[Rfam]
RNA sequence: AUCCUUCGGGUCUGUGGUUGCAAGCCGAUGCCAGACGCGGGCAAAGCGGUCCACGUAAGCCGGACAAAGUUCCGGUGAGCAUGGCGCGUUCUAGGUGUAAGACCGACCGCCGCCCAGGCGGCGAGAGAAGGCGAGUAGGGCGCUGAAGCGAUGAGCAGACCUUCCCGUCGGCGAGUGUGGGGGCAAAGACCAGGUCAGCCGAAGGUU
Numbered sequence: 001a002u003c004c005u006u007c008g009g010g011u012c013u014g015u016g017g018u019u020g021c022a023a024g025c026c027g028a029u030g031c032c033a034g035a036c037g038c039g040g041g042c043a044a045a046g047c048g049g050u051c052c053a054c055g056u057a058a059g060c061c062g063g064a065c066a067a068a069g070u071u072c073c074g075g076u077g078a079g080c081a082u083g084g085c086g087c088g089u090u091c092u093a094g095g096u097g098u099a100a101g102a103c104c105g106a107c108c109g110c111c112g113c114c115c116a117g118g119c120g121g122c123g124a125g126a127g128a129a130g131g132c133g134a135g136u137a138g139g140g141c142g143c144u145g146a147a148g149c150g151a152u153g154a155g156c157a158g159a160c161c162u163u164c165c166c167g168u169c170g171g172c173g174a175g176u177g178u179g180g181g182g183g184c185a186a187a188g189a190c191c192a193g194g195u196c197a198g199c200c201g202a203a204g205g206u207u
Stems, first nucleotide, its partner, number of pairs: 001207001003205007012198003015192005028178003031041001034090006050084002058076001060074001062072002082185001103171005108123005127164004135156002141150003
Dot-bracket structure: (.(((((((..((((((((........((([..((((((.]........((......(.(.((.......)).).).....[))))))))............((((((((((......)))))...((((....((....(((....)))....))....))))..)))))....)))......]..)))))...)))))))))).)
Rfam assigns this 207-nucleotide RNA to the family "raiA RNA". Pairs were carried over by alignment from the consensus structure, which is taken from published work.